[Rfam]
RNA sequence: GCUAUGGAGUGUUAUACAAACUAAAGUAGAUUAGGCAAAAUAGGACACAACGAAGUAGUGA
Numbered sequence: 001g002c003u004a005u006g007g008a009g010u011g012u013u014a015u016a017c018a019a020a021c022u023a024a025a026g027u028a029g030a031u032u033a034g035g036c037a038a039a040a041u042a043g044g045a046c047a048c049a050a051c052g053a054a055g056u057a058g059u060g061a
Stems, first nucleotide, its partner, number of pairs: 001059005009048005021043003029036001